[Rfam]
A member of the RNA family "mraW RNA" from Amycolatopsis arida, 110 nucleotides long. Taxonomically the source falls in Amycolatopsis (Bacteria, Bacillati, Pseudonocardiales, Pseudonocardiaceae). The family's RNA type in Rfam is cis-regulatory element.
RNA sequence: AGGCGGUGACUGUCGUGAGGUCUCUGUCCGCUCAGCGGCCCUGGUGCACCUUCCCCGGCACCAGGUUCGCAGCGGGCGGGCGGGGACCUGACGGCAGCCGCCGGCCGCGA
Numbered sequence: 001a002g003g004c005g006g007u008g009a010c011u012g013u014c015g016u017g018a019g020g021u022c023u024c025u026g027u028c029c030g031c032u033c034a035g036c037g038g039c040c041c042u043g044g045u046g047c048a049c050c051u052u053c054c055c056c057g058g059c060a061c062c063a064g065g066u067u068c069g070c071a072g073c074g075g076g077c078g079g080g081c082g083g084g085g086a087c088c089u090g091a092c093g094g095c096a097g098c099c100g101c102c103g104g105c106c107g108c109g110a
Stems, first nucleotide, its partner, number of pairs: 010097007019088002022085012035070004040065008